The family of this 91-nucleotide RNA from Oesophagostomum dentatum is "Small nucleolar RNA sn2903".
Its family is annotated with RNA processing and nucleolus in the Gene Ontology.
The source organism's lineage runs through Eukaryota, Metazoa, Eumetazoa, Chromadorea and Oesophagostomum.
It is annotated as a C/D-box small nucleolar RNA.
The family is grouped with related families in Rfam's "SNORD60 clan".
It scores 79 bits against the family's covariance model.

RNA sequence: GAGCGUUGAUGAAUGCACGUUUGCUUUCUGACACCUCUUAUGUUAGCGGUCAUUUCCGGGCUGCAAUGAUUCCAAAUUGAAUUCUGAGCUC
Numbered sequence: 001g002a003g004c005g006u007u008g009a010u011g012a013a014u015g016c017a018c019g020u021u022u023g024c025u026u027u028c029u030g031a032c033a034c035c036u037c038u039u040a041u042g043u044u045a046g047c048g049g050u051c052a053u054u055u056c057c058g059g060g061c062u063g064c065a066a067u068g069a070u071u072c073c074a075a076a077u078u079g080a081a082u083u084c085u086g087a088g089c090u091c
Base pairs, nucleotide, nucleotide: 001091002090003089004088